About this RNA:
The family of this 350-nucleotide sequence from Salipiger sp. CCB-MM3 is "Alphaproteobacteria transfer-messenger RNA". Taxonomically the source falls in Salipiger (Bacteria, Pseudomonadati, Pseudomonadota, Rhodobacterales).

[Rfam]
RNA sequence: CCCAUUGAAAGCCGCGCGCCGCCGUCCUAUAUGAGGGGUGUUCCGCAAGGGACUAUGGGCAUAAACGCGCAUGUAAUAAACGGAUCGGACCCGGGGGCGGUACCCGGCGGCUCCACCAAUAAACCCUUGUUGGGGGUUCAUGGGGCCGAAAUAGGAUCGACGAACGCGUAAAGAUGUAGCUUUGUCCCGGUGAGAUACCACCGUUAUCGGUUCAUAAAGCAUAGUUGCCAACAACAAUCGUGCUCCGAUGGCUCUGGCUGCGUAAGCAGUCCGAAACAUCGAAAUCUAAGUCCUUGCGCCUAGCAGCGUAAGGCGGGGUUCGCAGGUACCUGGCAACAGAAACCUGCACU
Numbered sequence: 001c002c003c004a005u006u007g008a009a010a011g012c013c014g015c016g017c018g019c020c021g022c023c024g025u026c027c028u029a030u031a032u033g034a035g036g037g038g039u040g041u042u043c044c045g046c047a048a049g050g051g052a053c054u055a056u057g058g059g060c061a062u063a064a065a066c067g068c069g070c071a072u073g074u075a076a077u078a079a080a081c082g083g084a085u086c087g088g089a090c091c092c093g094g095g096g097g098c099g100g101u102a103c104c105c106g107g108c109g110g111c112u113c114c115a116c117c118a119a120u121a122a123a124c125c126c127u128u129g130u131u132g133g134g135g136g137u138u139c140a141u142g143g144g145g146c147c148g149a150a151a152u153a154g155g156a157u158c159g160a161c162g163a164a165c166g167c168g169u170a171a172a173g174a175u176g177u178a179g180c181u182u183u184g185u186c187c188c189g190g191u192g193a194g195a196u197a198c199c200a201c202c203g204u205u206a207u208c209g210g211u212u213c214a215u216a217a218a219g220c221a222u223a224g225u226u227g228c229c230a231a232c233a234a235c236a237a238u239c240g241u242g243c244u245c246c247g248a249u250g251g252c253u254c255u256g257g258c259u260g261c262g263u264a265a266g267c268a269g270u271c272c273g274a275a276a277c278a279u280c281g282a283a284a285u286c287u288a289a290g291u292c293c294u295u296g297c298g299c300c301u302a303g304c305a306g307c308g309u310a311a312g313g314c315g316g317g318g319u320u321c322g323c324a325g326g327u328a329c330c331u332g333g334c335a336a337c338a339g340a341a342a343c344c345u346g347c348a349c350u
Stems, first nucleotide, its partner, number of pairs: 040053005057187005067180002069177004081166002085163003091107005108148007188203004194213002197211003316331004322347006
Dot-bracket structure: .......................................(((((....)))))...(((((.....((((((........((..(((...(((((.......)))))(((((((...........................)))))))............))).)).......)))).))..)))))((((..[[.[[[)))).....]]]]]......................................................................................................[[[[..((((((]]]]..........))))))...